This 85-nucleotide sequence from Neisseria bacilliformis belongs to the Rfam family "sRNA-Xcc1". On this family, see Schmidtke et al., Nucleic Acids Res 2011: "Genome-wide transcriptome analysis of the plant pathogen Xanthomonas identifies sRNAs with putative virulence functions". The match comes from Rfam's covariance-model search (66 bits). Rfam 15.1 lists 421 matches to the family in 299 species.
RNA sequence: GCCGAGAGGGUGACUAAUACAAUACCCGCAAGGGGAAUAAGUCCACCCUUACUUUUCAGGGCUACGAACCUCUUGGCCGCCCAUU
Numbered sequence: 001g002c003c004g005a006g007a008g009g010g011u012g013a014c015u016a017a018u019a020c021a022a023u024a025c026c027c028g029c030a031a032g033g034g035g036a037a038u039a040a041g042u043c044c045a046c047c048c049u050u051a052c053u054u055u056u057c058a059g060g061g062c063u064a065c066g067a068a069c070c071u072c073u074u075g076g077c078c079g080c081c082c083a084u085u
Base pairs, nucleotide, nucleotide: 001077002076003075004074005073006072007071008070009069012043013042014041015039016038025034026033027032046061047060048059049058